[Rfam]
RNA sequence: UAAUGAAUUUUGCCGAAUUUCGCUUGUGAAAACGGGGGAACCGUCUUGGGUGAAUUACUCUUGUUUCAGGAGAGUAUAGGGAACCUUCUACCGAACCUUUAGCUAACUCCGUAGGCAUCGAAGGAGAGAACGU
Numbered sequence: 001u002a003a004u005g006a007a008u009u010u011u012g013c014c015g016a017a018u019u020u021c022g023c024u025u026g027u028g029a030a031a032a033c034g035g036g037g038g039a040a041c042c043g044u045c046u047u048g049g050g051u052g053a054a055u056u057a058c059u060c061u062u063g064u065u066u067c068a069g070g071a072g073a074g075u076a077u078a079g080g081g082a083a084c085c086u087u088c089u090a091c092c093g094a095a096c097c098u099u100u101a102g103c104u105a106a107c108u109c110c111g112u113a114g115g116c117a118u119c120g121a122a123g124g125a126g127a128g129a130a131c132g133u
Stems, first nucleotide, its partner, number of pairs: 011117004018031003032112006042048002049097002056076006079092002082089001
Shown here is a 133-nucleotide RNA sequence from Paenibacillus sp. JCM 10914, a member of the family "c-di-AMP riboswitch aptamer (ydaO/yuaA leader)". Rfam links the family to the GO terms regulation of gene expression and cyclic-di-AMP binding. Taxonomically the source falls in Paenibacillus (Bacteria, Bacillati, Bacilli, Caryophanales).